[Rfam]
RNA sequence: AACAAACAAGGCCUUCUCUUCCCAGUUCUCUCCAGAAUCAGAAAAAGCUGGGUUGAGAGGGUAGAAAAAAAAAUGA
Numbered sequence: 001a002a003c004a005a006a007c008a009a010g011g012c013c014u015u016c017u018c019u020u021c022c023c024a025g026u027u028c029u030c031u032c033c034a035g036a037a038u039c040a041g042a043a044a045a046a047g048c049u050g051g052g053u054u055g056a057g058a059g060g061g062u063a064g065a066a067a068a069a070a071a072a073a074u075g076a
Base pairs, nucleotide, nucleotide: 014059015058016057017056018055021052022051023050024049025048029044031042032041
RNA: mir-320 microRNA precursor family
Organism: Sapajus apella